[Rfam]
RNA sequence: UCCCCCACAGUUCUCCGAUUCCCAUUUUCCGAAAGGAAUGUCUUCGGACCCCUCGGUUGGUCCGAUACCCACACGGCGCGUCGCAGUUCGGGGUCAAUGGGACCUAAUGUUCAUGCCGCGUGUGGAUCGCCGUGUGAGGGUGGCUAGCUGGCUAGCUUGCGAGACCCGCUGUUGGGAAUGGCGUUUCGGAACUUAACCCUAAGCUAUCAU
Numbered sequence: 001u002c003c004c005c006c007a008c009a010g011u012u013c014u015c016c017g018a019u020u021c022c023c024a025u026u027u028u029c030c031g032a033a034a035g036g037a038a039u040g041u042c043u044u045c046g047g048a049c050c051c052c053u054c055g056g057u058u059g060g061u062c063c064g065a066u067a068c069c070c071a072c073a074c075g076g077c078g079c080g081u082c083g084c085a086g087u088u089c090g091g092g093g094u095c096a097a098u099g100g101g102a103c104c105u106a107a108u109g110u111u112c113a114u115g116c117c118g119c120g121u122g123u124g125g126a127u128c129g130c131c132g133u134g135u136g137a138g139g140g141u142g143g144c145u146a147g148c149u150g151g152c153u154a155g156c157u158u159g160c161g162a163g164a165c166c167c168g169c170u171g172u173u174g175g176g177a178a179u180g181g182c183g184u185u186u187c188g189g190a191a192c193u194u195a196a197c198c199c200u201a202a203g204c205u206a207u208c209a210u
Stems, first nucleotide, its partner, number of pairs: 009193003015189004